[Rfam]
A member of the RNA family "L31-Coriobacteria ribosomal protein leader", 31 nucleotides long. Its Rfam clan is "Ribosomal Protein L31 Leader clan". The literature on the family includes a 2020 paper in BMC Microbiol by Eckert and Weinberg, "Discovery of 20 novel ribosomal leader candidates in bacteria and archaea".
Nucleotides: 031
Stems, first nucleotide, its partner, number of pairs: 001021008
Number, partner (000 for none) and nucleotide at each position: 001021g002020g003019c004018c005017u006016g007015g008014u009000c010000g011000g012000a013000a014008a015007c016006c017005a018004g019003g020002c021001c022000a023000c024000c025000u026000a027000u028000g029000g030000a031000g